[Rfam]
RNA sequence: AAAGGGUAUGCCGAAAACCUUAAUUAAUAGAGUAGGCC
Numbered sequence: 001a002a003a004g005g006g007u008a009u010g011c012c013g014a015a016a017a018c019c020u021u022a023a024u025u026a027a028u029a030g031a032g033u034a035g036g037c038c
Base pairs, nucleotide, nucleotide: 002021003020004019005018010037011036012035